Rfam assigns this 79-nucleotide RNA from Aquimonas voraii to the family "SAH (S-adenosyl-L-homocysteine) riboswitch aptamer". On this family, see Wang et al., Mol Cell 2008: "Riboswitches that sense S-adenosylhomocysteine and activate genes involved in coenzyme recycling". Lineage of the source: Bacteria > Pseudomonadota > Gammaproteobacteria > Lysobacteraceae > Aquimonas. The family has 52 seed sequences and 1,354 matches in Rfam 15.1. The family's consensus secondary structure is taken from published work.

[Rfam]
RNA sequence: CGCGCCGAGGGGCGCUGCGACCGGGUUCGAUCCGGCCAGGCUCGGAGCGACUCUCCACGUACAACGGCGCCCGGUGACC
Number, nucleotide and partner (000 for none) at each position: 001c000002g048003c047004g000005c045006c044007g043008a042009g000010g000011g000012g000013c000014g000015c000016u000017g000018c000019g000020a000021c035022c034023g033024g032025g031026u030027u000028c000029g000030a026031u025032c024033c023034g022035g021036c000037c000038a000039g000040g000041c000042u008043c007044g006045g005046a000047g003048c002049g000050a000051c000052u000053c000054u000055c000056c000057a000058c000059g000060u000061a000062c000063a000064a000065c000066g000067g000068c000069g000070c000071c000072c000073g000074g000075u000076g000077a000078c000079c000